[Rfam]
RNA sequence: AAAUUCCGCUAUUCGGAAAAGGCUAGCAACCUGCCGAAGCACCGAGUCAUGGGCGGUUGCUCGUAAGGGUAAUGGUUAAGCGUUGACAGGGGAAUGCAUAGGCUCGGUAUAGAGCUCCGAAAUCAAACUUAAGAACGCCGACCUUGUUGGAUGGUGGGGAAGGCAACACUGCUUUUAGCGUUAUUGCGAGCAACUAAGCAGGAUCUCCGGAGUCAUGAGACCC
Numbered sequence: 001a002a003a004u005u006c007c008g009c010u011a012u013u014c015g016g017a018a019a020a021g022g023c024u025a026g027c028a029a030c031c032u033g034c035c036g037a038a039g040c041a042c043c044g045a046g047u048c049a050u051g052g053g054c055g056g057u058u059g060c061u062c063g064u065a066a067g068g069g070u071a072a073u074g075g076u077u078a079a080g081c082g083u084u085g086a087c088a089g090g091g092g093a094a095u096g097c098a099u100a101g102g103c104u105c106g107g108u109a110u111a112g113a114g115c116u117c118c119g120a121a122a123u124c125a126a127a128c129u130u131a132a133g134a135a136c137g138c139c140g141a142c143c144u145u146g147u148u149g150g151a152u153g154g155u156g157g158g159g160a161a162g163g164c165a166a167c168a169c170u171g172c173u174u175u176u177a178g179c180g181u182u183a184u185u186g187c188g189a190g191c192a193a194c195u196a197a198g199c200a201g202g203a204u205c206u207c208c209g210g211a212g213u214c215a216u217g218a219g220a221c222c223c
Base pairs, nucleotide, nucleotide: 012038013037014036015035016034020032021031022030024189026187027186040092042090043089046087047086048085049084050082051081052077053076054075056073057072058071059070060069061068062067112214114213115212116211117210118209119208132206133205134204136202137164138163139162142158143157144156169201170200171199172198173197174196176193178191179190
Rfam assigns this 223-nucleotide RNA sequence from Teredinibacter turnerae to the family "Group II catalytic intron D1-D4-6". NCBI's taxonomy places the organism under Bacteria, Pseudomonadati, Cellvibrionales, Teredinibacter, Teredinibacter turnerae. For this family Rfam cites "Control of branch-site choice by a group II intron" (Chu et al., EMBO J, 2001). Its family is annotated with Group II intron splicing in the Gene Ontology.